[Rfam]
RNA sequence: GGCUCCGGUGCUCCAUGCGACAACCCCAAAGGAACAACGGACGAGGAAAAGGAACCGAGCCAAGCCCCACCUGCCCCGCUCCCGGCAGCCGCCGGGGCCGCUCACCCACAAAGGUGAACAUCGCCAACUCAGCUGGCCGAAGCCCCUGUUGACUGCCAUACGCUCAGCGCGAGACCCGAGCAAGCAAAACAACCGCAGACAUGCGACGGCCCCCGGCCGGGACUCGCAAUCCCGAUCGAGGGCCUGACCACCGAGGAAGUAGGAGCUUCCCG
Numbered sequence: 001g002g003c004u005c006c007g008g009u010g011c012u013c014c015a016u017g018c019g020a021c022a023a024c025c026c027c028a029a030a031g032g033a034a035c036a037a038c039g040g041a042c043g044a045g046g047a048a049a050a051g052g053a054a055c056c057g058a059g060c061c062a063a064g065c066c067c068c069a070c071c072u073g074c075c076c077c078g079c080u081c082c083c084g085g086c087a088g089c090c091g092c093c094g095g096g097g098c099c100g101c102u103c104a105c106c107c108a109c110a111a112a113g114g115u116g117a118a119c120a121u122c123g124c125c126a127a128c129u130c131a132g133c134u135g136g137c138c139g140a141a142g143c144c145c146c147u148g149u150u151g152a153c154u155g156c157c158a159u160a161c162g163c164u165c166a167g168c169g170c171g172a173g174a175c176c177c178g179a180g181c182a183a184g185c186a187a188a189a190c191a192a193c194c195g196c197a198g199a200c201a202u203g204c205g206a207c208g209g210c211c212c213c214c215g216g217c218c219g220g221g222a223c224u225c226g227c228a229a230u231c232c233c234g235a236u237c238g239a240g241g242g243c244c245u246g247a248c249c250a251c252c253g254a255g256g257a258a259g260u261a262g263g264a265g266c267u268u269c270c271c272g
Base pairs, nucleotide, nucleotide: 007252008251009250010249017092018091019090102117103116104115105114106113132168133167134166135165136164208244209243210242211241212240214238215237219233220232221231222230255270256269257268258267259266
Streptomyces sRNA 4677: a 272-nucleotide RNA. Rfam describes the family as follows. Located in the intergenic region between anti-sigma factor SCO4677 gene and a putative regulatory protein gene SCO4676. scr4677 expression requires the SCO4677 activity and scr4677 sRNA itself seem to affect the levels of the SCO4676-associated transcripts. Rfam 15.1 lists 563 matches to the family in 285 species. Pairs were carried over by alignment from the consensus structure.